[Rfam]
Record summary:
The record is a 101-nucleotide sequence from Paenibacillus methanolicus, which matches "Purine riboswitch aptamer" in Rfam. Rfam 15.1 lists 4,097 matches to the family in 1,411 species. Lineage of the source: Bacteria > Bacillati > Bacilli > Caryophanales > Paenibacillus.
RNA sequence: GAACACAAAUGUGCAUAUUUUCGUAUAAUCUUGAGAAUCGGCUCAAGAGUCUCUACGAGGUCACCGUAAAUGAUCUAUCUACGAAAAGCAGCAAGACAUCG
Numbered sequence: 001g002a003a004c005a006c007a008a009a010u011g012u013g014c015a016u017a018u019u020u021u022c023g024u025a026u027a028a029u030c031u032u033g034a035g036a037a038u039c040g041g042c043u044c045a046a047g048a049g050u051c052u053c054u055a056c057g058a059g060g061u062c063a064c065c066g067u068a069a070a071u072g073a074u075c076u077a078u079c080u081a082c083g084a085a086a087a088g089c090a091g092c093a094a095g096a097c098a099u100c101g
Stems, first nucleotide, its partner, number of pairs: 018087008029048007058076006